[Rfam]
RNA sequence: AAGUGUUACAGCUCUUUUAGAAUGUGUCUAGCAGGCUUUCUGGCUUUCACUGUGAAACCCUU
Number, nucleotide and partner (000 for none) at each position: 001a000002a000003g000004u000005g000006u000007u000008a000009c000010a000011g000012c000013u000014c000015u000016u000017u000018u000019a000020g000021a000022a000023u000024g000025u000026g000027u000028c000029u000030a000031g000032c000033a000034g059035g058036c000037u056038u055039u054040c000041u052042g051043g050044c000045u000046u000047u000048c000049a000050c043051u042052g041053u000054g039055a038056a037057a000058c035059c034060c000061u000062u000

Shown here is a 62-nucleotide RNA sequence from Homo sapiens, a member of the family "U7 small nuclear RNA". The source organism's lineage runs through Eukaryota, Opisthokonta, Craniata, Tetrapoda and Homo. Rfam's curators write: Animal histone pre-mRNAs are spliced by a different mechanism than nuclear pre-mRNAs and self-splicing introns. The base pairs follow the family's consensus structure, which was predicted with PFOLD.